[Rfam]
RNA sequence: AUAAUUUGCUAGGGGUGCCAAAAUGGCUGAGAGAUAAUUUAUCAACCCUUGUACCUGAUCUGGAUAAUACCAGCGUAGGAAAGCUACUUGAAUUUAUA
Numbered sequence: 001a002u003a004a005u006u007u008g009c010u011a012g013g014g015g016u017g018c019c020a021a022a023a024u025g026g027c028u029g030a031g032a033g034a035u036a037a038u039u040u041a042u043c044a045a046c047c048c049u050u051g052u053a054c055c056u057g058a059u060c061u062g063g064a065u066a067a068u069a070c071c072a073g074c075g076u077a078g079g080a081a082a083g084c085u086a087c088u089u090g091a092a093u094u095u096a097u098a
Stems, first nucleotide, its partner, number of pairs: 006086001008084003011049004017027004034042003054079004060073004
TPP riboswitch aptamer (THI element): a 98-nucleotide RNA from Clostridium cylindrosporum. From the family's description: Vitamin B(1) in its active form thiamin pyrophosphate (TPP) is an essential coenzyme that is synthesised by coupling of pyrimidine and thiazole moieties in bacteria. The previously detected thiamin-regulatory element, thi box was extended, resulting in a new, highly conserved RNA secondary structure, the THI element, which is widely distributed in eubacteria and also occurs in some archaea. Its family is annotated with thiamine pyrophosphate binding in the Gene Ontology.